[Rfam]
RNA sequence: AUAAAAUAAUAAUAAAAAAAAAAAAAAAAAAUCUGUUCUUAUCAGUUUAAUAUCUGAUACGUCCCCUAUACGGGGACUAUAUAUUAAAUGGAUUUUUAGCACUGGGAGCUGAAAGAGGGGCUUGCCCCGUUCACUCCACGCAUCGACCCGGUAUUGCAGCGCCUCCGGGAACGGUGCACCCAUC
Numbered sequence: 001a002u003a004a005a006a007u008a009a010u011a012a013u014a015a016a017a018a019a020a021a022a023a024a025a026a027a028a029a030a031a032u033c034u035g036u037u038c039u040u041a042u043c044a045g046u047u048u049a050a051u052a053u054c055u056g057a058u059a060c061g062u063c064c065c066c067u068a069u070a071c072g073g074g075g076a077c078u079a080u081a082u083a084u085u086a087a088a089u090g091g092a093u094u095u096u097u098a099g100c101a102c103u104g105g106g107a108g109c110u111g112a113a114a115g116a117g118g119g120g121c122u123u124g125c126c127c128c129g130u131u132c133a134c135u136c137c138a139c140g141c142a143u144c145g146a147c148c149c150g151g152u153a154u155u156g157c158a159g160c161g162c163c164u165c166c167g168g169g170a171a172c173g174g175u176g177c178a179c180c181c182a183u184c
Stems, first nucleotide, its partner, number of pairs: 040059006061077006105137004111131002117128004140177006147169005